[Rfam]
RNA sequence: GCAGUGUUGCCACGCUGAGACGUCCCGCGGAAGGGAUCAGCGUGGUGAUGGUGGGCACUCUCCGCCCUUGCCGGGGCGGGUUAUGCCGAUUGGCGUUCGGCGUCCGGGAGUUCAUAGCUCUCGGACGCCGCCG
Numbered sequence: 001g002c003a004g005u006g007u008u009g010c011c012a013c014g015c016u017g018a019g020a021c022g023u024c025c026c027g028c029g030g031a032a033g034g035g036a037u038c039a040g041c042g043u044g045g046u047g048a049u050g051g052u053g054g055g056c057a058c059u060c061u062c063c064g065c066c067c068u069u070g071c072c073g074g075g076g077c078g079g080g081u082u083a084u085g086c087c088g089a090u091u092g093g094c095g096u097u098c099g100g101c102g103u104c105c106g107g108g109a110g111u112u113c114a115u116a117g118c119u120c121u122c123g124g125a126c127g128c129c130g131c132c133g
Stems, first nucleotide, its partner, number of pairs: 001094002006049002010045009023034002052088003056085002061080008098130014